[Rfam]
RNA: Small nucleolar RNA SNORA57
Organism: Equus asinus
RNA sequence: GCUCCUUUUCUUGGCGGGGAUCAGGCAUGCAUCCCGGUCCCCAUAAUGUAUGGAGGCAGAGGGAAAGGGCUCCAGCCGUCUCGGCGUUGUGUCUUCAGUGCUGGUGGCUUCCAGUGCGCCGCUUCUGUCCUCAAGCGCCGGGACAUGG
Numbered sequence: 001g002c003u004c005c006u007u008u009u010c011u012u013g014g015c016g017g018g019g020a021u022c023a024g025g026c027a028u029g030c031a032u033c034c035c036g037g038u039c040c041c042c043a044u045a046a047u048g049u050a051u052g053g054a055g056g057c058a059g060a061g062g063g064a065a066a067g068g069g070c071u072c073c074a075g076c077c078g079u080c081u082c083g084g085c086g087u088u089g090u091g092u093c094u095u096c097a098g099u100g101c102u103g104g105u106g107g108c109u110u111c112c113a114g115u116g117c118g119c120c121g122c123u124u125c126u127g128u129c130c131u132c133a134a135g136c137g138c139c140g141g142g143a144c145a146u147g148g
Stems, first nucleotide, its partner, number of pairs: 002055004016042005022036001024034002082140006102121005